[Rfam]
RNA sequence: CAGCAUGUUUCCAAGGGCUGUGGUUGCUGGUGGCCACGAGUUCUCCAACUGCAUGCGAGAGCAACGUGGAGGGACUUUGACAGCCCGGGUCACACCGCACCUGCAGCUGCCACUCGCCUUUCCUAUAAAC
Numbered sequence: 001c002a003g004c005a006u007g008u009u010u011c012c013a014a015g016g017g018c019u020g021u022g023g024u025u026g027c028u029g030g031u032g033g034c035c036a037c038g039a040g041u042u043c044u045c046c047a048a049c050u051g052c053a054u055g056c057g058a059g060a061g062c063a064a065c066g067u068g069g070a071g072g073g074a075c076u077u078u079g080a081c082a083g084c085c086c087g088g089g090u091c092a093c094a095c096c097g098c099a100c101c102u103g104c105a106g107c108u109g110c111c112a113c114u115c116g117c118c119u120u121u122c123c124u125a126u127a128a129a130c
Stems, first nucleotide, its partner, number of pairs: 012038001016035006068123006083110002086103004
Shown here is a 130-nucleotide RNA sequence from Tupaia belangeri, a member of the family "Small nucleolar RNA SNORA44". Gene Ontology terms of the family: nucleolus and RNA processing. The family has 27 seed sequences and 1,056 matches in Rfam 15.1. A reference for the family is Huttenhofer et al. (2001), "RNomics: an experimental approach that identifies 201 candidates for novel, small, non-messenger RNAs in mouse", EMBO J. Its Rfam clan is "SNORA44 clan".